[Rfam]
RNA sequence: GGAAAUAAGAAUCGUCAGAGGAAGGGAUAGCGAAAUCGUGGCUUUACGAACAGGAACGUGAUAGUAAGGCGUAUAUAGCGGAUAAGGGGGUCUCAAACUCUAAAGUCCAAAAAGGUAGUCGUAACCUAUAUGCGUAAAUCACGAGAGUAAUUGAAUUCGUACUAAGAUUUUCUA
Numbered sequence: 001g002g003a004a005a006u007a008a009g010a011a012u013c014g015u016c017a018g019a020g021g022a023a024g025g026g027a028u029a030g031c032g033a034a035a036u037c038g039u040g041g042c043u044u045u046a047c048g049a050a051c052a053g054g055a056a057c058g059u060g061a062u063a064g065u066a067a068g069g070c071g072u073a074u075a076u077a078g079c080g081g082a083u084a085a086g087g088g089g090g091u092c093u094c095a096a097a098c099u100c101u102a103a104a105g106u107c108c109a110a111a112a113a114g115g116u117a118g119u120c121g122u123a124a125c126c127u128a129u130a131u132g133c134g135u136a137a138a139u140c141a142c143g144a145g146a147g148u149a150a151u152u153g154a155a156u157u158c159g160u161a162c163u164a165a166g167a168u169u170u171u172c173u174a
Stems, first nucleotide, its partner, number of pairs: 025173003031166001037159002040156001041148005057143006069135003073131006080108004086101004
Rfam assigns this 174-nucleotide sequence from Streptococcus pneumoniae to the family "Group II catalytic intron D1-D4-3". The pairing is the family consensus, mapped onto this sequence. Group II introns are found in rRNA, tRNA and mRNA of organelles in fungi, plants and protists, and also in mRNA in bacteria.